[Rfam]
RNA: sroC RNA
Organism: Paramixta manurensis
RNA sequence: ACUAACAAUGAAAACAAGGGCGGCCUACGCUGCCCUCUCGAUUGUUGAUUACAGGCUCGGACAGACAGACGGCGGAUGGUCGUUCCCCAUCGGCCGGAACAAGAAGCCUCUCAUCAAUCUUCAGGGUAGCUUCGCUACCCUUUUUUACCGGAGUUUG
Number, nucleotide and partner (000 for none) at each position: 001a000002c000003u000004a000005a000006c000007a000008a000009u000010g000011a000012a156013a155014a154015c000016a000017a000018g035019g034020g033021c032022g030023g000024c000025c000026u000027a000028c000029g000030c022031u000032g021033c020034c019035c018036u125037c124038u123039c000040g122041a118042u117043u116044g115045u000046u000047g112048a111049u000050u000051a000052c000053a000054g000055g000056c000057u000058c000059g000060g100061a000062c097063a000064g000065a000066c000067a000068g000069a000070c000071g095072g094073c093074g000075g091076a090077u089078g088079g087080u000081c000082g000083u000084u000085c000086c000087c079088c078089a077090u076091c075092g000093g073094c072095c071096g000097g062098a000099a000100c060101a000102a000103g000104a000105a000106g000107c000108c000109u000110c000111u048112c047113a000114u000115c044116a043117a042118u041119c000120u000121u000122c040123a038124g037125g036126g000127u000128a000129g000130c000131u000132u000133c000134g000135c000136u000137a000138c000139c000140c000141u000142u000143u000144u000145u000146u000147a000148c000149c000150g000151g000152a000153g000154u014155u013156u012157g000